[Rfam]
Plastid-rpl16 group II-D1 intron: a 47-nucleotide sequence from Bismarckia nobilis. Plastid-rpl16 is a non-coding RNA (ncRNA) recognised in plastids. Gene Ontology term of the family: Group II intron splicing. Pairs were carried over by alignment from the consensus structure, which was predicted with LocARNA.

RNA sequence: AAGAGCUUCGGGUUAAUAAAAACUGAGGAGAUUGACUCGAGAACGAA
Numbered sequence: 001a002a003g004a005g006c007u008u009c010g011g012g013u014u015a016a017u018a019a020a021a022a023c024u025g026a027g028g029a030g031a032u033u034g035a036c037u038c039g040a041g042a043a044c045g046a047a
Stems, first nucleotide, its partner, number of pairs: 007041002010038008